[Rfam]
RNA sequence: CCGGGCGUUGGGCUUGCCCUGCAGGAUCAGGUUGCCCACAGCAUGCAUCAGAUGGGUCUUGCCCAGCCCCACACCGCCAUA
Number, nucleotide and partner (000 for none) at each position: 001c000002c000003g000004g000005g042006c041007g000008u000009u038010g037011g036012g035013c034014u000015u000016g032017c031018c030019c000020u029021g028022c000023a000024g000025g000026a000027u000028c021029a020030g018031g017032u016033u000034g013035c012036c011037c010038a009039c000040a000041g006042c005043a000044u000045g000046c000047a000048u000049c000050a000051g078052a000053u076054g075055g000056g074057u073058c000059u000060u000061g072062c000063c000064c000065a000066g000067c000068c000069c000070c000071a000072c061073a057074c056075c054076g053077c000078c051079a000080u000081a000

antisense RNA of dnaA mRNA: an 81-nucleotide sequence from Thiohalobacter thiocyanaticus.